[Rfam]
RNA: TPP riboswitch aptamer (THI element)
RNA sequence: GCCGCUCUAACGGGGUGCCGGACGCUGAUUUCGCGGCCGGCUGAGAGGCAGACAAGCCAACCCGCUGAACCUGAUCCGGUUUGUACCGGCGGAGGGAUUAGACGUUUCGGACCA
Numbered sequence: 001g002c003c004g005c006u007c008u009a010a011c012g013g014g015g016u017g018c019c020g021g022a023c024g025c026u027g028a029u030u031u032c033g034c035g036g037c038c039g040g041c042u043g044a045g046a047g048g049c050a051g052a053c054a055a056g057c058c059a060a061c062c063c064g065c066u067g068a069a070c071c072u073g074a075u076c077c078g079g080u081u082u083g084u085a086c087c088g089g090c091g092g093a094g095g096g097a098u099u100a101g102a103c104g105u106u107u108c109g110g111a112c113c114a
Stems, first nucleotide, its partner, number of pairs: 006102005011064004017041005048057002070095003076089004